[Rfam]
RNA sequence: UUAAACCUAGAACUCUCGUUAAGGAACCAUAAUUGAACCUACAUUAUUUUAUUGGGAAUCCGGAGUCUUUCAUUUGAUGACAUGCCUUUUUAGGACUUCAGAGAUUGAAAGCAGGAUACCCACCUAUCGACAGAUAGGCAUCAAUUAUAUCCUGACGGAGCUUCCGGGUUUUUU
Numbered sequence: 001u002u003a004a005a006c007c008u009a010g011a012a013c014u015c016u017c018g019u020u021a022a023g024g025a026a027c028c029a030u031a032a033u034u035g036a037a038c039c040u041a042c043a044u045u046a047u048u049u050u051a052u053u054g055g056g057a058a059u060c061c062g063g064a065g066u067c068u069u070u071c072a073u074u075u076g077a078u079g080a081c082a083u084g085c086c087u088u089u090u091u092a093g094g095a096c097u098u099c100a101g102a103g104a105u106u107g108a109a110a111g112c113a114g115g116a117u118a119c120c121c122a123c124c125u126a127u128c129g130a131c132a133g134a135u136a137g138g139c140a141u142c143a144a145u146u147a148u149a150u151c152c153u154g155a156c157g158g159a160g161c162u163u164c165c166g167g168g169u170u171u172u173u174u
Stems, first nucleotide, its partner, number of pairs: 003171006010164002013160003017157003030147007038138002054121003058117004063112001068110005074104001080098001085094002